This 131-nucleotide RNA sequence from Chiloscyllium punctatum belongs to the Rfam family "Small nucleolar RNA SNORA63".
Pairs were carried over by alignment from the consensus structure, which was predicted with PFOLD.
Gene Ontology terms of the family: RNA processing and nucleolus.
The match comes from Rfam's covariance-model search (93 bits).
The family has 8 seed sequences and 1,279 matches in Rfam 15.1.
RNA sequence: GUGCAGGAAAAGUUACGUCUCAGCUGCUCAGUGCUGGAGAUGUCGUUCCCCCUGCAAAAAGAAACAUGUUUCAUACUAUCCCUGGCAGUCCAAAACCCUACUGGCUGACAGGGACGCUUGGUCACAUACAA
Numbered sequence: 001g002u003g004c005a006g007g008a009a010a011a012g013u014u015a016c017g018u019c020u021c022a023g024c025u026g027c028u029c030a031g032u033g034c035u036g037g038a039g040a041u042g043u044c045g046u047u048c049c050c051c052c053u054g055c056a057a058a059a060a061g062a063a064a065c066a067u068g069u070u071u072c073a074u075a076c077u078a079u080c081c082c083u084g085g086c087a088g089u090c091c092a093a094a095a096c097c098c099u100a101c102u103g104g105c106u107g108a109c110a111g112g113g114a115c116g117c118u119u120g121g122u123c124a125c126a127u128a129c130a131a
Base pairs, nucleotide, nucleotide: 003055004054005053006052007051015043016042017041018040019039020038021036022035023034024033081112082111083110084109086107087106088105089104